Shown here is a 116-nucleotide RNA from Dermacoccus sp. 147Ba, a member of the family "SAM (S-adenosyl methionine) riboswitch aptamer". For this family Rfam cites "The aptamer core of SAM-IV riboswitches mimics the ligand-binding site of SAM-I riboswitches" (Weinberg et al., RNA, 2008).
RNA sequence: GGUCACGAGCGCCAGCGUCAAACCCCGGUUUGCUGGCCGGCAACCCUCCCACCGCGGCGGGGUGCUCCGGGUGACGACCUGGCCCGGCGUCGGAUACGCCCGGGCAAGCGCGGAAG
Number, nucleotide and partner (000 for none) at each position: 001g079002g078003u077004c076005a000006c000007g000008a000009g038010c000011g037012c036013c035014a034015g033016c032017g000018u000019c000020a000021a030022a029023c000024c000025c000026c000027g000028g000029u022030u021031u000032g016033c015034u014035g013036g012037c011038c009039g066040g065041c064042a000043a000044c062045c061046c060047u000048c057049c056050c000051a000052c000053c000054g000055c000056g049057g048058c000059g000060g046061g045062g044063u000064g041065c040066u039067c000068c000069g000070g000071g000072u000073g000074a000075c000076g004077a003078c002079c001080u000081g000082g105083c104084c103085c102086g101087g099088c098089g097090u096091c000092g000093g000094a000095u000096a090097c089098g088099c087100c000101c086102g085103g084104g083105c082106a000107a000108g000109c000110g000111c000112g000113g000114a000115a000116g000
Pairs were carried over by alignment from the consensus structure, which is taken from published work.